[Rfam]
RNA sequence: GAGUGCUUACAGCUCUUUUUGAAUUUGUCUAGUAAAUCUUCUGGUUUUUACCGGAAGGCCCUC
Number, nucleotide and partner (000 for none) at each position: 001g000002a000003g000004u000005g000006c000007u000008u000009a000010c000011a000012g000013c000014u000015c000016u000017u000018u000019u000020u000021g000022a000023a000024u000025u000026u000027g000028u000029c000030u000031a000032g000033u000034a000035a000036a000037u058038c057039u056040u055041c054042u053043g052044g051045u050046u000047u000048u000049u000050a045051c044052c043053g042054g041055a040056a039057g038058g037059c000060c000061c000062u000063c000
Notes: U7 small nuclear RNA: a 63-nucleotide RNA sequence from Molossus molossus. A reference for the family is Spycher et al. (1994), "3' end processing of mouse histone pre-mRNA: evidence for additional base-pairing between U7 snRNA and pre-mRNA", Nucleic Acids Res. The match comes from Rfam's covariance-model search (59 bits). The family's consensus secondary structure was predicted with PFOLD. The source organism's lineage runs through Eukaryota, Bilateria, Chordata, Amniota and Molossus.